[Rfam]
RNA: FMN riboswitch aptamer (RFN element)
RNA sequence: CAUGUGUUCCGGGGUCGGUGUGAUUCCGAACCGGCGGUGAAAGCCCGCGAACCCCGCUCGAGCGGGGCCGAAUCGGUGGAAUCCCGAUGCCGACGGUGAUGAGCCCUCAGCUCUAGUCCGGAUGAUAGGAACGCGAA
Numbered sequence: 001c002a003u004g005u006g007u008u009c010c011g012g013g014g015u016c017g018g019u020g021u022g023a024u025u026c027c028g029a030a031c032c033g034g035c036g037g038u039g040a041a042a043g044c045c046c047g048c049g050a051a052c053c054c055c056g057c058u059c060g061a062g063c064g065g066g067g068c069c070g071a072a073u074c075g076g077u078g079g080a081a082u083c084c085c086g087a088u089g090c091c092g093a094c095g096g097u098g099a100u101g102a103g104c105c106c107u108c109a110g111c112u113c114u115a116g117u118c119c120g121g122a123u124g125a126u127a128g129g130a131a132c133g134c135g136a137a
Stems, first nucleotide, its partner, number of pairs: 003135008016028003032092002034048004043090002052067002072088005094120003